[Rfam]
RNA sequence: ACAAUGCCGCGUAAGGGAUAGUAGUGGAAAUCCUUUUUGAGAGGAACGAACAAAAAGAUUGUAACGAAUAGCCCGACCCGCU
Numbered sequence: 001a002c003a004a005u006g007c008c009g010c011g012u013a014a015g016g017g018a019u020a021g022u023a024g025u026g027g028a029a030a031u032c033c034u035u036u037u038u039g040a041g042a043g044g045a046a047c048g049a050a051c052a053a054a055a056a057g058a059u060u061g062u063a064a065c066g067a068a069u070a071g072c073c074c075g076a077c078c079c080g081c082u
Stems, first nucleotide, its partner, number of pairs: 015074003019070002024065002029060004034055002036050004